[Rfam]
RNA: MIR397 microRNA precursor family
RNA sequence: ACUAAAAACAUGAUUGAGUGCAGCGCAGAUGAAACCGCAUUCCAAGCUGCCGGGAACGACAAAUUGCUGCAAUGGAUAUCAUCAACGCUGCACUCAAUGAUGCUUUUA
Dot-bracket structure: .....((.(((.(((((((((((((..(.(((..............................................))).)..))))))))))))).))).))...